This 104-nucleotide RNA sequence from Cephalotus follicularis belongs to the Rfam family "Small nucleolar RNA snoR99". For this family Rfam cites "Experimental RNomics: identification of 140 candidates for small non-messenger RNAs in the plant Arabidopsis thaliana" (Marker et al., Curr Biol, 2002). The match comes from Rfam's covariance-model search (49 bits). Pairs were carried over by alignment from the consensus structure, which was predicted with WAR. Rfam links the family to the GO terms nucleolus and RNA processing. Rfam classes the family as an H/ACA-box small nucleolar RNA.
RNA sequence: GUGCUCAAGGGAUGAACAUAAGCCCUUUAAAUGCAAAAUCAAUCCCAUUCACUUAGUCAACAGUGUUAUUCUCUAAUUUCUGGUCAUUAGAGGCUGGAAUAUGC
Numbered sequence: 001g002u003g004c005u006c007a008a009g010g011g012a013u014g015a016a017c018a019u020a021a022g023c024c025c026u027u028u029a030a031a032u033g034c035a036a037a038a039u040c041a042a043u044c045c046c047a048u049u050c051a052c053u054u055a056g057u058c059a060a061c062a063g064u065g066u067u068a069u070u071c072u073c074u075a076a077u078u079u080c081u082g083g084u085c086a087u088u089a090g091a092g093g094c095u096g097g098a099a100u101a102u103g104c
Stems, first nucleotide, its partner, number of pairs: 039098002042095001044093001056084004062079002